[Rfam]
RNA: Fluoride riboswitch aptamer (crcB RNA motif)
Nucleotides: 077
Base pairs, nucleotide, nucleotide: 010025011024012023013022016068017067018066019065020064021063046057047056048055
Number, partner (000 for none) and nucleotide at each position: 001000u002000u003000a004000a005000u006000a007000a008000u009000u010025g011024g012023a013022g014000a015000u016068g017067a018066g019065g020064c021063u022013c023012u024011c025010c026000a027000a028000a029000c030000a031000c032000u033000u034000u035000u036000g037000u038000g039000u040000a041000a042000a043000a044000u045000g046057c047056u048055u049000a050000u051000a052000a053000c054000u055048a056047a057046g058000a059000u060000g061000a062000u063021a064020g065019c066018u067017u068016c069000u070000a071000c072000a073000a074000a075000u076000g077000u